[Rfam]
RNA sequence: AAUCAUAAAAUGCCGAGUUCCCGUGAAUCGGGGAACGGGGGAACCAUCUUUUCGGGUGAGUUGGCUUUGCUUCAAAGGAGCCAUAGGGGACCUUCUACCGAACCCUUAAGCUAACCUCGUAGGCAUUGGAAGGAGUCGCC
Numbered sequence: 001a002a003u004c005a006u007a008a009a010a011u012g013c014c015g016a017g018u019u020c021c022c023g024u025g026a027a028u029c030g031g032g033g034a035a036c037g038g039g040g041g042a043a044c045c046a047u048c049u050u051u052u053c054g055g056g057u058g059a060g061u062u063g064g065c066u067u068u069g070c071u072u073c074a075a076a077g078g079a080g081c082c083a084u085a086g087g088g089g090a091c092c093u094u095c096u097a098c099c100g101a102a103c104c105c106u107u108a109a110g111c112u113a114a115c116c117u118c119g120u121a122g123g124c125a126u127u128g129g130a131a132g133g134a135g136u137c138g139c140c
Base pairs, nucleotide, nucleotide: 011125012124013123014122018034019033020032021031022030023029035120036119037118038117039116040115046052054105055104056103062083063082064081065080066079067078068077086099087098
Dot-bracket structure: ..........((((...((((((.....))))))((((((.....(.....).(((.....(((((((........)))))))..((..........))...))).........)))))).))))...............